The family of this 122-nucleotide sequence from Gossypium barbadense is "MIR7504 microRNA precursor family". NCBI's taxonomy places the organism under Eukaryota, Euphyllophyta, Gunneridae, rosids, Gossypium. The base pairs follow the family's consensus structure, which was predicted with RNAalifold. Rfam links the family to the GO terms RISC complex and miRNA-mediated post-transcriptional gene silencing.
RNA sequence: AAUAGUUUUAUGCCACAUCAGUAUUUUUAUCCUGAAUUUUAGGAUUUUAUCCUGAAUUUAAUUUUUUUCAUGAUAAAACCUUGAAAUUCAAGAUAAGAAUACUGAUGUGGCAUAAAACUAUU
Numbered sequence: 001a002a003u004a005g006u007u008u009u010a011u012g013c014c015a016c017a018u019c020a021g022u023a024u025u026u027u028u029a030u031c032c033u034g035a036a037u038u039u040u041a042g043g044a045u046u047u048u049a050u051c052c053u054g055a056a057u058u059u060a061a062u063u064u065u066u067u068u069c070a071u072g073a074u075a076a077a078a079c080c081u082u083g084a085a086a087u088u089c090a091a092g093a094u095a096a097g098a099a100u101a102c103u104g105a106u107g108u109g110g111c112a113u114a115a116a117a118c119u120a121u122u
Stems, first nucleotide, its partner, number of pairs: 001122027029094003033090007041082002045078004